[Rfam]
RNA sequence: UGGCUGUAAUGGUCACAAGGUUAGGGAGAUAUCAGCAUACCACGUCUUUGCAACCAUUUCUCGUCUGCCGACAGCGCCCAGUUCGAACACGGCGGUGGCGUCCCACUCGCGCAGGAAACUCGCGAUGCUGGUGGUGCCCUAAGCAAUGAAGAAUACUUCUCGAGGGAGGCCUCACUCUGCAGAGAGAUCUUCACCGUCGGGUGGCGGUAUUGGAUUACGCUUGUUGUGUGGUUUGGUUGCGGGACGUGGGUUGAGCGUCGACUUAUUUUUUUGCGGUUUUUUU
Numbered sequence: 001u002g003g004c005u006g007u008a009a010u011g012g013u014c015a016c017a018a019g020g021u022u023a024g025g026g027a028g029a030u031a032u033c034a035g036c037a038u039a040c041c042a043c044g045u046c047u048u049u050g051c052a053a054c055c056a057u058u059u060c061u062c063g064u065c066u067g068c069c070g071a072c073a074g075c076g077c078c079c080a081g082u083u084c085g086a087a088c089a090c091g092g093c094g095g096u097g098g099c100g101u102c103c104c105a106c107u108c109g110c111g112c113a114g115g116a117a118a119c120u121c122g123c124g125a126u127g128c129u130g131g132u133g134g135u136g137c138c139c140u141a142a143g144c145a146a147u148g149a150a151g152a153a154u155a156c157u158u159c160u161c162g163a164g165g166g167a168g169g170c171c172u173c174a175c176u177c178u179g180c181a182g183a184g185a186g187a188u189c190u191u192c193a194c195c196g197u198c199g200g201g202u203g204g205c206g207g208u209a210u211u212g213g214a215u216u217a218c219g220c221u222u223g224u225u226g227u228g229u230g231g232u233u234u235g236g237u238u239g240c241g242g243g244a245c246g247u248g249g250g251u252u253g254a255g256c257g258u259c260g261a262c263u264u265a266u267u268u269u270u271u272u273g274c275g276g277u278u279u280u281u282u283u
Stems, first nucleotide, its partner, number of pairs: 001015004017280006026271004031266002038253001039251003042247004047243010066230002069226005074220003078213005083207003087202002090199006097138001099136004103131003107125005113120002139143001147193006157186005166177003
The record is a 283-nucleotide sequence from Lachnellula suecica, which matches "Fungal signal recognition particle RNA" in Rfam. The base pairs follow the family's consensus structure, which is taken from published work. A reference for the family is Wild et al. (2002), "Towards the structure of the mammalian signal recognition particle", Curr Opin Struct Biol. Rfam classes the family as a non-coding RNA gene. The family has 50 seed sequences and 748 matches in Rfam 15.1. Clan: SRP clan.